[Rfam]
RNA sequence: UAAAAGGGUCGGUUGGCUAAAUAUGCCACGCUGGCCUCUGGAUGGGCGAGUGCUGUAUGGCAAUCUAGACAUAUGGCCGACAUAAUUUGUGGAAACUCCAUAGGGUUGGCUCCAUUUGCCGACCCUCCU
Dot-bracket structure: .......(((((.((((.......))))((((.((((......)))).))))(((((((..........))))))))))))....................((((((((...(....)))))))))...

About this RNA: The family of this 129-nucleotide RNA from Momordica charantia is "U11 spliceosomal RNA". The base pairs follow the family's consensus structure, which is taken from published work. For this family Rfam cites "Additional low-abundance human small nuclear ribonucleoproteins: U11, U12, etc" (Montzka and Steitz, Proc Natl Acad Sci U S A, 1988). A search with the family's covariance model found it, with a score of 65 bits. Taxonomically the source falls in Momordica (Eukaryota, Tracheophyta, Spermatophyta, Cucurbitales).